[Rfam]
RNA sequence: AAGUGAGGUAGAGGCGCGGUAUUUAACAGUCCCUGGUGGAGCGUGAGGGAGCAAUGAGCCUGGGGAGAAGGAAAUAUCGCCGAAGCUUGUAAUAUCCUCAGUAUUACUUGCUGGGCCUACAGUUAAGAGCUGUAGGACUGUCUCAAUAAACGUCCCGGUUUAUUGAGUUGUGCUAUCUCAUUU
Number, nucleotide and partner (000 for none) at each position: 001a000002a000003g000004u000005g000006a178007g177008g176009u175010a174011g173012a000013g000014g000015c000016g080017c079018g078019g077020u076021a075022u074023u073024u072025a000026a000027c000028a000029g000030u065031c064032c063033c062034u000035g060036g059037u058038g000039g000040a000041g000042c000043g000044u000045g000046a000047g000048g000049g000050a000051g000052c000053a000054a000055u000056g000057a000058g037059c036060c035061u000062g033063g032064g031065g030066a000067g000068a000069a000070g000071g000072a024073a023074a022075u021076a020077u019078c018079g017080c016081c000082g000083a000084a112085g111086c110087u000088u000089g107090u106091a105092a104093u103094a102095u101096c000097c000098u000099c000100a000101g095102u094103a093104u092105u091106a090107c089108u000109u000110g086111c085112u084113g139114g138115g000116c136117c135118u134119a133120c132121a131122g130123u129124u000125a000126a000127g000128a000129g123130c122131u121132g120133u119134a118135g117136g116137a000138c114139u113140g000141u000142c167143u166144c165145a164146a163147u162148a161149a160150a159151c000152g000153u000154c000155c000156c000157g000158g000159u150160u149161u148162a147163u146164u145165g144166a143167g142168u000169u000170g000171u000172g000173c011174u010175a009176u008177c007178u006179c000180a000181u000182u000183u000
The family of this 183-nucleotide RNA from Fonticella tunisiensis is "Lysine riboswitch aptamer". The organism belongs to Fonticella, within Bacteria. The match comes from Rfam's covariance-model search (103 bits).